[Rfam]
RNA sequence: UAAUUUAUCUGAAAUAAAUUUUCAUAUAGUUAUAACAUAUUUACAUUUAUUUACUCAUAUUUAUUUAUUAUCUCAAACCCGACUGCAUCAUUUUCUCACCAAGAAAAUGCAUAAGUUAUAUAUCUCAAUCAUGAGAUUUAUAUUUAUGUAAAAA
Number, nucleotide and partner (000 for none) at each position: 001u000002a000003a000004u152005u151006u150007a149008u000009c000010u000011g000012a143013a000014a141015u140016a000017a000018a137019u136020u000021u000022u000023c133024a132025u131026a000027u000028a000029g000030u128031u127032a000033u000034a000035a000036c000037a000038u000039a000040u000041u000042u000043a000044c000045a000046u000047u000048u000049a000050u000051u000052u000053a000054c000055u000056c000057a000058u000059a000060u000061u000062u000063a000064u000065u000066u000067a000068u000069u000070a000071u000072c000073u000074c000075a000076a000077a000078c000079c000080c000081g000082a000083c000084u000085g000086c000087a000088u000089c000090a000091u000092u000093u000094u000095c000096u000097c000098a000099c000100c000101a000102a000103g000104a000105a000106a000107a000108u000109g000110c000111a000112u000113a000114a000115g000116u000117u000118a000119u000120a000121u000122a000123u000124c000125u000126c000127a031128a030129u000130c000131a025132u024133g023134a000135g000136a019137u018138u000139u000140a015141u014142a000143u012144u000145u000146a000147u000148g000149u007150a006151a005152a004153a000154a000

The record is a 154-nucleotide RNA from Populus alba, which matches "MIR480 microRNA precursor family" in Rfam. On this family, see Lu et al., Plant Cell 2005: "Novel and mechanical stress-responsive MicroRNAs in Populus trichocarpa that are absent from Arabidopsis". Rfam 15.1 lists 3,070 matches to the family in 171 species. The source organism's lineage runs through Eukaryota, Tracheophyta, Mesangiospermae, Salicaceae and Populus.